[Rfam]
RNA sequence: GCGGGUGUAGUUUAGUGGUAAAACCUCAGCCUUCCAAGCUGAUGUCGUGGGUUCGAUUCCCAUCACCCGCU
Numbered sequence: 001g002c003g004g005g006u007g008u009a010g011u012u013u014a015g016u017g018g019u020a021a022a023a024c025c026u027c028a029g030c031c032u033u034c035c036a037a038g039c040u041g042a043u044g045u046c047g048u049g050g051g052u053u054c055g056a057u058u059c060c061c062a063u064c065a066c067c068c069g070c071u
Base pairs, nucleotide, nucleotide: 001070002069003068004067005066006065007064010024011023012022013021026042027041028040029039030038047063048062049061050060051059
RNA: tRNA